[Rfam]
RNA: Small nucleolar RNA SNORD11B
Organism: Cyprinodon variegatus
RNA sequence: CGGCUGUGAUGAUGAUGCUGACAGUCGUCGUUUUCCUGAAACAUUUGGUGUGGGUCAGUCACUACCUCCUCUGAACAGUCC
Numbered sequence: 001c002g003g004c005u006g007u008g009a010u011g012a013u014g015a016u017g018c019u020g021a022c023a024g025u026c027g028u029c030g031u032u033u034u035c036c037u038g039a040a041a042c043a044u045u046u047g048g049u050g051u052g053g054g055u056c057a058g059u060c061a062c063u064a065c066c067u068c069c070u071c072u073g074a075a076c077a078g079u080c081c
Base pairs, nucleotide, nucleotide: 002080003079004078005077006076007075